Shown here is a 149-nucleotide RNA from Carlito syrichta, a member of the family "U12 minor spliceosomal RNA".
RNA sequence: AAGCUUUAAACUUAUAAGGUAAGGAAAAUAACGAUUUGGGGUGAUGCCUGAAUUCUCACUGCUAAAGUGAGACAAAUUUUUGAGCUGGUAAAGGUUGUCCUUAAGGUGACCCGCCUACUUUGUGGGUACCUGGAGUCGUGAUCUGCCCA
Numbered sequence: 001a002a003g004c005u006u007u008a009a010a011c012u013u014a015u016a017a018g019g020u021a022a023g024g025a026a027a028a029u030a031a032c033g034a035u036u037u038g039g040g041g042u043g044a045u046g047c048c049u050g051a052a053u054u055c056u057c058a059c060u061g062c063u064a065a066a067g068u069g070a071g072a073c074a075a076a077u078u079u080u081u082g083a084g085c086u087g088g089u090a091a092a093g094g095u096u097g098u099c100c101u102u103a104a105g106g107u108g109a110c111c112c113g114c115c116u117a118c119u120u121u122g123u124g125g126g127u128a129c130c131u132g133g134a135g136u137c138g139u140g141a142u143c144u145g146c147c148c149a
Base pairs, nucleotide, nucleotide: 004024005023006022007021008020033054034053035052036051037050038049039048040047055071056070057069058068059067087147088146089145092144093143094142095141096140097139098138100135101134104131105130106129107128110126111125112124113123114122
For this family Rfam cites "Pre-mRNA splicing: the discovery of a new spliceosome doubles the challenge" (Tarn and Steitz, Trends Biochem Sci, 1997). Rfam links the family to the GO terms mRNA branch site recognition, U12 snRNP and pre-mRNA branch point binding. The source organism's lineage runs through Eukaryota, Deuterostomia, Euteleostomi, Theria and Carlito.